Shown here is a 137-nucleotide RNA from Erinaceus europaeus, a member of the family "Small nucleolar RNA SNORA58". The base pairs follow the family's consensus structure, which was predicted with PFOLD. The family's RNA type in Rfam is H/ACA-box small nucleolar RNA. The match comes from Rfam's covariance-model search (76 bits). Rfam's curators write: ACA52 is a member of the H/ACA class of snoRNA that guide the sites of modification of uridines to pseudouridines. Taxonomically the source falls in Erinaceus (Eukaryota, Sarcopterygii, Amniota, Eulipotyphla).
RNA sequence: GUGCAUAUCAGUAGACCUCACCUUGCUAUAUCUUGGCUUGGUGAGGGGGACAGCAUAUGCUAGAGGUAAUAUGGAGUGCUGUCAGAUAACAGCCGACAGAAUAGGUGGUUUGGCUGAACUGUCAUACUCCUACAUAG
Numbered sequence: 001g002u003g004c005a006u007a008u009c010a011g012u013a014g015a016c017c018u019c020a021c022c023u024u025g026c027u028a029u030a031u032c033u034u035g036g037c038u039u040g041g042u043g044a045g046g047g048g049g050a051c052a053g054c055a056u057a058u059g060c061u062a063g064a065g066g067u068a069a070u071a072u073g074g075a076g077u078g079c080u081g082u083c084a085g086a087u088a089a090c091a092g093c094c095g096a097c098a099g100a101a102u103a104g105g106u107g108g109u110u111u112g113g114c115u116g117a118a119c120u121g122u123c124a125u126a127c128u129c130c131u132a133c134a135u136a137g
Base pairs, nucleotide, nucleotide: 003060004059005058006057007056008055016046017045018044019043020042021041022040073130074129075128076127081123083121093113094112095111096109097108
Dot-bracket structure: ..((((((.......(((((((.................)))))))........))))))............((((....(.(.........(((((..........)).))).......).)...)))).......